Glycine riboswitch aptamer: an 88-nucleotide RNA from Pseudooceanicola spongiae. Lineage of the source: Bacteria > Pseudomonadati > Rhodobacterales > Paracoccaceae > Pseudooceanicola.

[Rfam]
RNA sequence: GGCCAUUGGAUCGGGAGAACUGGUGAAAUCCAGUGCCGAAGGAGCAACCGCCCCGGAAACUCUCAGGCAACAGGACCGUCCGAUACAC
Numbered sequence: 001g002g003c004c005a006u007u008g009g010a011u012c013g014g015g016a017g018a019a020c021u022g023g024u025g026a027a028a029u030c031c032a033g034u035g036c037c038g039a040a041g042g043a044g045c046a047a048c049c050g051c052c053c054c055g056g057a058a059a060c061u062c063u064c065a066g067g068c069a070a071c072a073g074g075a076c077c078g079u080c081c082g083a084u085a086c087a088c
Stems, first nucleotide, its partner, number of pairs: 006083005012078003020033004035068003038064002042062003048056002